[Rfam]
RNA: Glutamine-II riboswitch aptamer
Organism: Cyanobium sp. PCC 7001
RNA sequence: ACACGUUGAUCCUCCUGUCCCCAGGCGGAUGCAGUUGGACCCAUCUCAGGCAACGGGGAGGUGGG
Numbered sequence: 001a002c003a004c005g006u007u008g009a010u011c012c013u014c015c016u017g018u019c020c021c022c023a024g025g026c027g028g029a030u031g032c033a034g035u036u037g038g039a040c041c042c043a044u045c046u047c048a049g050g051c052a053a054c055g056g057g058g059a060g061g062u063g064g065g
Stems, first nucleotide, its partner, number of pairs: 004055005010029003014025004040065006046058002